[Rfam]
RNA sequence: UGGUGCUCAGCAUGAGGGCUGGAUACGGAGGAUCCAGUGAGGGAAUAAGACGGCCCCAACGGAACGCAUUCCACAACAAUUUUCACUCUGGACUCGCUGCGGGAACCUGCCUCGGCUACAACCAGAAGUAAGUACAGACGUCUGAUUAUGGGACAAGAAAUAAGCAGGCAUGAACUUUAUGUUAGGCAAUUGCAAGAAGCCUUGAAGACGCGAGGAGUAAAGGUUGGUUCUUUGAAUUUAUUAAGGAAACCUGUCCUU
Numbered sequence: 001u002g003g004u005g006c007u008c009a010g011c012a013u014g015a016g017g018g019c020u021g022g023a024u025a026c027g028g029a030g031g032a033u034c035c036a037g038u039g040a041g042g043g044a045a046u047a048a049g050a051c052g053g054c055c056c057c058a059a060c061g062g063a064a065c066g067c068a069u070u071c072c073a074c075a076a077c078a079a080u081u082u083u084c085a086c087u088c089u090g091g092a093c094u095c096g097c098u099g100c101g102g103g104a105a106c107c108u109g110c111c112u113c114g115g116c117u118a119c120a121a122c123c124a125g126a127a128g129u130a131a132g133u134a135c136a137g138a139c140g141u142c143u144g145a146u147u148a149u150g151g152g153a154c155a156a157g158a159a160a161u162a163a164g165c166a167g168g169c170a171u172g173a174a175c176u177u178u179a180u181g182u183u184a185g186g187c188a189a190u191u192g193c194a195a196g197a198a199g200c201c202u203u204g205a206a207g208a209c210g211c212g213a214g215g216a217g218u219a220a221a222g223g224u225u226g227g228u229u230c231u232u233u234g235a236a237u238u239u240a241u242u243a244a245g246g247a248a249a250c251c252u253g254u255c256c257u258u
Base pairs, nucleotide, nucleotide: 006030007029008028013025014024035053037051038050085129086128087127088125089124094120098114099113101111102110137154141152142151143150144149161204162203163202164200165199211234212233213232214231215230216229217228218227243258244257245256246255247254
A member of the RNA family "Mason-Pfizer monkey virus packaging signal" from Nannospalax galili, 258 nucleotides long. The organism belongs to Nannospalax, within Eukaryota. The base pairs follow the family's consensus structure, which was predicted with PFOLD.